The record is a 61-nucleotide RNA sequence from Pristionchus pacificus, which matches "mir-8364 microRNA precursor family" in Rfam.
RNA sequence: UCUUUAUUUCACAUGCUCUCUCACCUCUCCGAUUGAUGAAAGAGUAUGCGACAUAAAGAGA
Number, nucleotide and partner (000 for none) at each position: 001u059002c058003u057004u056005u055006a054007u053008u000009u000010c050011a000012c048013a047014u046015g045016c044017u043018c000019u041020c000021u039022c038023a000024c000025c000026u000027c000028u000029c000030c000031g000032a000033u000034u000035g000036a000037u000038g022039a021040a000041a019042g000043a017044g016045u015046a014047u013048g012049c000050g010051a000052c000053a007054u006055a005056a004057a003058g002059a001060g000061a000

The base pairs follow the family's consensus structure, which was predicted with RNAalifold. Gene Ontology terms of the family: miRNA-mediated post-transcriptional gene silencing and RISC complex.